This 145-nucleotide RNA from Chenopodium quinoa belongs to the Rfam family "Nematode snoRNA ceN39". A search with the family's covariance model found it, with a score of 36 bits. For this family Rfam cites "Systematic identification of non-coding RNA 2,2,7-trimethylguanosine cap structures in Caenorhabditis elegans" (Jia et al., BMC Mol Biol, 2007). The family's RNA type in Rfam is H/ACA-box small nucleolar RNA. Pairs were carried over by alignment from the consensus structure, which was predicted with RNAalifold.

RNA sequence: CUGUCGGAAAGUACGAAAUUUCCGACGAAUUUUAUUUCAGUCGAAAAUCCGUCGGAAAUCUCCGACGGAAUUGUAAUCCGUUGGAAAAUUAUUCACUUCCGACGGAUUUUCCGUCGGAAAUGUUAUAUUUCCGACGAAUAUAAUU
Numbered sequence: 001c002u003g004u005c006g007g008a009a010a011g012u013a014c015g016a017a018a019u020u021u022c023c024g025a026c027g028a029a030u031u032u033u034a035u036u037u038c039a040g041u042c043g044a045a046a047a048u049c050c051g052u053c054g055g056a057a058a059u060c061u062c063c064g065a066c067g068g069a070a071u072u073g074u075a076a077u078c079c080g081u082u083g084g085a086a087a088a089u090u091a092u093u094c095a096c097u098u099c100c101g102a103c104g105g106a107u108u109u110u111c112c113g114u115c116g117g118a119a120a121u122g123u124u125a126u127a128u129u130u131c132c133g134a135c136g137a138a139u140a141u142a143a144u145u
Base pairs, nucleotide, nucleotide: 003066004065005064006063007062011053014051015050017048019046020045021044022043079136080135081134082133083132084131085130091128092127094122095121097119098118099117100116101115103113104112105111
Dot-bracket structure: ..(((((...(..((.(.((((....................)))).).)).)........)))))............(((((((.....((.((.(((((.(((.....))).))))).))....)).))))))).........